This 81-nucleotide RNA from Myotis davidii belongs to the Rfam family "mir-574 microRNA precursor family".
The family's consensus secondary structure was predicted with RNAalifold.
A search with the family's covariance model found it, with a score of 80 bits.
Clan: mir-574 microRNA precursor clan.
NCBI's taxonomy places the organism under Eukaryota, Eumetazoa, Euteleostomi, Yangochiroptera, Myotis.
[Rfam]
RNA sequence: AGGCCUGGAGAGAGAAGCAGGGUCUGAUCCGUAGGCUCCAUGGCAGCUGCUGAUCAGCGAUUGCCUCUCCCUUUCUCUCUG
Numbered sequence: 001a002g003g004c005c006u007g008g009a010g011a012g013a014g015a016a017g018c019a020g021g022g023u024c025u026g027a028u029c030c031g032u033a034g035g036c037u038c039c040a041u042g043g044c045a046g047c048u049g050c051u052g053a054u055c056a057g058c059g060a061u062u063g064c065c066u067c068u069c070c071c072u073u074u075c076u077c078u079c080u081g
Stems, first nucleotide, its partner, number of pairs: 008073003012069004017064004024057006032049003